Rfam assigns this 99-nucleotide RNA sequence from Candidatus Burkholderia verschuerenii to the family "ZMP/ZTP riboswitch aptamer (pfl RNA motif)". Taxonomically the source falls in Burkholderia (Bacteria, Pseudomonadati, Pseudomonadota, Betaproteobacteria). Gene Ontology terms of the family: regulation of purine nucleotide biosynthetic process and one-carbon metabolic process. A search with the family's covariance model found it, with a score of 55 bits.
[Rfam]
RNA sequence: ACAACCCCGCGUGACUGGCGAUAGGAUCUUCGGAUCCAAGGUGGAGCAACCCACCAGGAAGCGCUGAGCGUCGUUUUGCCGUUCGCCUGGGCAGCUGAG
Numbered sequence: 001a002c003a004a005c006c007c008c009g010c011g012u013g014a015c016u017g018g019c020g021a022u023a024g025g026a027u028c029u030u031c032g033g034a035u036c037c038a039a040g041g042u043g044g045a046g047c048a049a050c051c052c053a054c055c056a057g058g059a060a061g062c063g064c065u066g067a068g069c070g071u072c073g074u075u076u077u078g079c080c081g082u083u084c085g086c087c088u089g090g091g092c093a094g095c096u097g098a099g
Base pairs, nucleotide, nucleotide: 005068007066009064010063011062012061015058016057017087018086019085020084021083041054042053043052044051076094077093078092079091080090